[Rfam]
RNA: Bacillus-plasmid RNA
Organism: Marinococcus luteus
RNA sequence: UUCGUCAACGGUACCGGACCGUAGGGAGGAUAAGGAGUUGACGAAACGUUG
Numbered sequence: 001u002u003c004g005u006c007a008a009c010g011g012u013a014c015c016g017g018a019c020c021g022u023a024g025g026g027a028g029g030a031u032a033a034g035g036a037g038u039u040g041a042c043g044a045a046a047c048g049u050u051g
Base pairs, nucleotide, nucleotide: 001045002044003043004042005041006040007039008038009037